Shown here is a 454-nucleotide sequence from Naumovozyma dairenensis, a member of the family "Nuclear RNase P".
[Rfam]
RNA sequence: ACAGUGAUGAUUCCUACGUUUUAAGAACCUGUUUACAGAAGGAGGAUAACACUUUAGUGCUUUUCUCAUAUAAGUUCAGGUGGGAAAUUCGGUGAAACACAGCGGAACCAACAACAUCUACCAAGGUGUCGUUGCCCUCCCCAAGCCUAGACGGUGUCUUCUUCUAGGAGGAGCUUAAGUCCAGGUCCUUCCCGUGAGGGCAGUUUUCUUUGCAAUUUUAAAUUUUACUGGGGAACCGGUCUGCCUAAAAAUUGCCAUUGAAGAAUUUAUUGGGACGUCGUUAGCAGAAAUUCACAGAGACCUCUUUCAAAGAAAUUGGUCCCUGAUGGGAACAGCGACGGUAGUUCCAUUUGACUUGUGGUGUGAAAUAAUAUCGACCAUAAGGUCUGUUGAGUGCAAUCGUAGGACAGAUUUGAUUUGAAAAUCUGAACCCGAUACCGAUUACCAUUGUUGU
Numbered sequence: 001a002c003a004g005u006g007a008u009g010a011u012u013c014c015u016a017c018g019u020u021u022u023a024a025g026a027a028c029c030u031g032u033u034u035a036c037a038g039a040a041g042g043a044g045g046a047u048a049a050c051a052c053u054u055u056a057g058u059g060c061u062u063u064u065c066u067c068a069u070a071u072a073a074g075u076u077c078a079g080g081u082g083g084g085a086a087a088u089u090c091g092g093u094g095a096a097a098c099a100c101a102g103c104g105g106a107a108c109c110a111a112c113a114a115c116a117u118c119u120a121c122c123a124a125g126g127u128g129u130c131g132u133u134g135c136c137c138u139c140c141c142c143a144a145g146c147c148u149a150g151a152c153g154g155u156g157u158c159u160u161c162u163u164c165u166a167g168g169a170g171g172a173g174c175u176u177a178a179g180u181c182c183a184g185g186u187c188c189u190u191c192c193c194g195u196g197a198g199g200g201c202a203g204u205u206u207u208c209u210u211u212g213c214a215a216u217u218u219u220a221a222a223u224u225u226u227a228c229u230g231g232g233g234a235a236c237c238g239g240u241c242u243g244c245c246u247a248a249a250a251a252u253u254g255c256c257a258u259u260g261a262a263g264a265a266u267u268u269a270u271u272g273g274g275a276c277g278u279c280g281u282u283a284g285c286a287g288a289a290a291u292u293c294a295c296a297g298a299g300a301c302c303u304c305u306u307u308c309a310a311a312g313a314a315a316u317u318g319g320u321c322c323c324u325g326a327u328g329g330g331a332a333c334a335g336c337g338a339c340g341g342u343a344g345u346u347c348c349a350u351u352u353g354a355c356u357u358g359u360g361g362u363g364u365g366a367a368a369u370a371a372u373a374u375c376g377a378c379c380a381u382a383a384g385g386u387c388u389g390u391u392g393a394g395u396g397c398a399a400u401c402g403u404a405g406g407a408c409a410g411a412u413u414u415g416a417u418u419u420g421a422a423a424a425u426c427u428g429a430a431c432c433c434g435a436u437a438c439c440g441a442u443u444a445c446c447a448u449u450g451u452u453g454u
Base pairs, nucleotide, nucleotide: 001454002453003452004451007448008447009446012407013406014405015404016403017402018401027081028080029079030078031077042067043066044065045064046063090440091439092438093437094436189202191200192199193198276340277339278338279337280336281335282334295325296324297323408428409427410426411425412424413423414422
The family's consensus secondary structure is taken from published work. Lineage of the source: Eukaryota > Opisthokonta > Saccharomycotina > Saccharomycetaceae > Naumovozyma dairenensis. It scores 74 bits against the family's covariance model. Its family is annotated with tRNA processing, ribonuclease P activity and ribonuclease P complex in the Gene Ontology. It is annotated as a ribozyme.